Rfam assigns this 315-nucleotide sequence from Methanosarcina acetivorans to the family "Archaeal signal recognition particle RNA". For this family Rfam cites "Towards the structure of the mammalian signal recognition particle" (Wild et al., Curr Opin Struct Biol, 2002). The family's RNA type in Rfam is non-coding RNA gene.

[Rfam]
RNA sequence: UGAUGAGCUAGUCCGGGUAGCCCGGCGUUACCUGUAACCCGAAAUCGCCGAUAUGCGGGGGACGAAGCCAAUGGAAGAUGCGUCAAAGGGAUUCCAGCCUGUGAUCUCAACUGAGAAACCCCGUCCUGCUUGGAUGAUGCAGGUAUGUGGACUUGCUGGAAAACAGGUCCUCAUACCCUAACUGCGGAAACCGGUCGAGGCCCGGAAGGGAGCAGACUCACUGUGGGCAACCGUCGCUUGCGGGGUCGCGGGGUGGAGAAGAGAUUCCAGUCUACUGAAAUCUCCCAGAUACAACGACCUGCGGUGUGCUCAUCA
Numbered sequence: 001u002g003a004u005g006a007g008c009u010a011g012u013c014c015g016g017g018u019a020g021c022c023c024g025g026c027g028u029u030a031c032c033u034g035u036a037a038c039c040c041g042a043a044a045u046c047g048c049c050g051a052u053a054u055g056c057g058g059g060g061g062a063c064g065a066a067g068c069c070a071a072u073g074g075a076a077g078a079u080g081c082g083u084c085a086a087a088g089g090g091a092u093u094c095c096a097g098c099c100u101g102u103g104a105u106c107u108c109a110a111c112u113g114a115g116a117a118a119c120c121c122c123g124u125c126c127u128g129c130u131u132g133g134a135u136g137a138u139g140c141a142g143g144u145a146u147g148u149g150g151a152c153u154u155g156c157u158g159g160a161a162a163a164c165a166g167g168u169c170c171u172c173a174u175a176c177c178c179u180a181a182c183u184g185c186g187g188a189a190a191c192c193g194g195u196c197g198a199g200g201c202c203c204g205g206a207a208g209g210g211a212g213c214a215g216a217c218u219c220a221c222u223g224u225g226g227g228c229a230a231c232c233g234u235c236g237c238u239u240g241c242g243g244g245g246u247c248g249c250g251g252g253g254u255g256g257a258g259a260a261g262a263g264a265u266u267c268c269a270g271u272c273u274a275c276u277g278a279a280a281u282c283u284c285c286c287a288g289a290u291a292c293a294a295c296g297a298c299c300u301g302c303g304g305u306g307u308g309c310u311c312a313u314c315a
Stems, first nucleotide, its partner, number of pairs: 001315008011063004015033007038059004043054001067305003073299002077295001079293002083288001088284006095277003099270003103266006111258002118254007125244005132237001133235004138229002142177006149170007157162001182226006193218004201210003